[Rfam]
RNA sequence: GUGGUGGUAAUGCUUGCUUACUGGGUUACACACUAGAGUGGCUUUCUCACUCUGUAAAACCUAGGGGAAGGUCUGAGACAAAGGCUAUACAACCUCCUAGCAGGGGGCCCUCAUAAAAGAGGGGUGGGGAACCCAGAAAUAGGCUCCCUCAGGCUCUGCAUGAGAAACCCAUGGUAGAUGCAAUAGUGCCUGAUGUGGAGUUGGAAAUUCCCAUGGCCAGCUAUUUAAGUAUGAUUAGCAAGGUGGCACUGUCAUAACUCAAUUCAGACUACUCUACCCCCAC
Numbered sequence: 001g002u003g004g005u006g007g008u009a010a011u012g013c014u015u016g017c018u019u020a021c022u023g024g025g026u027u028a029c030a031c032a033c034u035a036g037a038g039u040g041g042c043u044u045u046c047u048c049a050c051u052c053u054g055u056a057a058a059a060c061c062u063a064g065g066g067g068a069a070g071g072u073c074u075g076a077g078a079c080a081a082a083g084g085c086u087a088u089a090c091a092a093c094c095u096c097c098u099a100g101c102a103g104g105g106g107g108c109c110c111u112c113a114u115a116a117a118a119g120a121g122g123g124g125u126g127g128g129g130a131a132c133c134c135a136g137a138a139a140u141a142g143g144c145u146c147c148c149u150c151a152g153g154c155u156c157u158g159c160a161u162g163a164g165a166a167a168c169c170c171a172u173g174g175u176a177g178a179u180g181c182a183a184u185a186g187u188g189c190c191u192g193a194u195g196u197g198g199a200g201u202u203g204g205a206a207a208u209u210c211c212c213a214u215g216g217c218c219a220g221c222u223a224u225u226u227a228a229g230u231a232u233g234a235u236u237a238g239c240a241a242g243g244u245g246g247c248a249c250u251g252u253c254a255u256a257a258c259u260c261a262a263u264u265c266a267g268a269c270u271a272c273u274c275u276a277c278c279c280c281c282a283c
Stems, first nucleotide, its partner, number of pairs: 001283004007277003014240001021064005036052006073267005083218004093107005108123005124214007144200003243255005
Shown here is a 283-nucleotide sequence from Magallana gigas, a member of the family "Nuclear RNase P". Pairs were carried over by alignment from the consensus structure, which is taken from published work. For this family Rfam cites "Ribonuclease P: unity and diversity in a tRNA processing ribozyme" (Frank and Pace, Annu Rev Biochem, 1998). By type it is a ribozyme. From the family's description: Ribonuclease P (RNase P) is a ubiquitous endoribonuclease, found in archaea, bacteria and eukarya as well as chloroplasts and mitochondria. The family has 116 seed sequences and 3,848 matches in Rfam 15.1. NCBI's taxonomy places the organism under Eukaryota, Eumetazoa, Spiralia, Bivalvia, Magallana.